[Rfam]
RNA: c-di-AMP riboswitch aptamer (ydaO/yuaA leader)
RNA sequence: UAAUCUUGAACGCUGAGUUCUUUCUAUGGCCUACCCCAUAGAAAGAAGCGGGGGACCCAACACUUGGGGUGAAUCUCCUUCAUAAUAGGGAAUGAGACCCUAUUAUGAGGAGUAGGGUUACCUCUUCAACCCGAACCCGUCAGCUAACCUCGUAAGCGUGGAAAGAGGAGGU
Numbered sequence: 001u002a003a004u005c006u007u008g009a010a011c012g013c014u015g016a017g018u019u020c021u022u023u024c025u026a027u028g029g030c031c032u033a034c035c036c037c038a039u040a041g042a043a044a045g046a047a048g049c050g051g052g053g054g055a056c057c058c059a060a061c062a063c064u065u066g067g068g069g070u071g072a073a074u075c076u077c078c079u080u081c082a083u084a085a086u087a088g089g090g091a092a093u094g095a096g097a098c099c100c101u102a103u104u105a106u107g108a109g110g111a112g113u114a115g116g117g118u119u120a121c122c123u124c125u126u127c128a129a130c131c132c133g134a135a136c137c138c139g140u141c142a143g144c145u146a147a148c149c150u151c152g153u154a155a156g157c158g159u160g161g162a163a164a165g166a167g168g169a170g171g172u
Stems, first nucleotide, its partner, number of pairs: 011158004018047012048153006058066002067138003075112006115132004